[Rfam]
RNA: Vault RNA
Organism: Crotophaga sulcirostris
RNA sequence: GGGCCGGCUUUAGCCCAGCGGUUCCUUCGGUGCUUCACAAUUGUCUCGUGUCCCUGCCCCGGCGGGGGUUCGAUCCCGCGGGCACCCCUGGCCCACUU
Numbered sequence: 001g002g003g004c005c006g007g008c009u010u011u012a013g014c015c016c017a018g019c020g021g022u023u024c025c026u027u028c029g030g031u032g033c034u035u036c037a038c039a040a041u042u043g044u045c046u047c048g049u050g051u052c053c054c055u056g057c058c059c060c061g062g063c064g065g066g067g068g069u070u071c072g073a074u075c076c077c078g079c080g081g082g083c084a085c086c087c088c089u090g091g092c093c094c095a096c097u098u
Stems, first nucleotide, its partner, number of pairs: 002093006013083004018079004027073004